Source information
Rfam assigns this 220-nucleotide part of an RNA to the family "Bacterial large subunit ribosomal RNA". A reference for the family is Yusupov et al. (2001), "Crystal structure of the ribosome at 5.5 A resolution", Science. The match comes from Rfam's covariance-model search (1199 bits).

[Rfam]
RNA sequence: GAAAAAUAGUAAAAAGGGGCAGACCUUCUAGUACGAAAGGAUCAAUAGGCUGUGUUUCUCUAGUGUACCAAUUGUUGAAAAUUGCACAAGUAUAGAAUAAUUAUUCUAUCUUUGACCAAUGAAUAGGCAUAGUUGGGUAGCCACAAACAUGAUAGAUAAGUGCUGAAUGAAUAUUAAGCAAGAAGCUAUCCCCUAGAUACUAUCAUUAGAGUAUUUUUUU
Number, nucleotide and partner (000 for none) at each position: 001g000002a000003a000004a000005a207006a206007u205008a000009g203010u202011a201012a000013a000014a000015a000016g193017g192018g191019g190020c000021a000022g051023a000024c049025c048026u047027u045028c000029u000030a000031g000032u000033a000034c000035g000036a000037a000038a000039g000040g000041a000042u000043c000044a000045a027046u000047a026048g025049g024050c000051u022052g150053u149054g148055u147056u146057u145058c000059u000060c000061u143062a000063g141064u000065g000066u000067a000068c136069c135070a134071a133072u132073u129074g128075u127076u126077g000078a000079a000080a000081a000082u000083u000084g000085c000086a000087c000088a000089a000090g000091u000092a000093u000094a000095g000096a000097a000098u000099a000100a000101u000102u000103a000104u000105u000106c000107u000108a000109u000110c000111u000112u000113u000114g000115a000116c000117c000118a000119a000120u000121g000122a000123a000124u000125a000126g076127g075128c074129a073130u000131a000132g072133u071134u070135g069136g068137g000138u000139a000140g000141c063142c000143a061144c000145a057146a056147a055148c054149a053150u052151g000152a000153u188154a187155g186156a000157u000158a000159a000160g000161u180162g179163c178164u177165g000166a000167a000168u000169g000170a000171a000172u000173a000174u000175u000176a000177a164178g163179c162180a161181a000182g000183a000184a000185g000186c155187u154188a153189u000190c019191c018192c017193c016194u000195a000196g000197a000198u000199a000200c000201u011202a010203u009204c000205a007206u006207u005208a000209g000210a220211g219212u000213a000214u000215u000216u000217u000218u000219u211220u210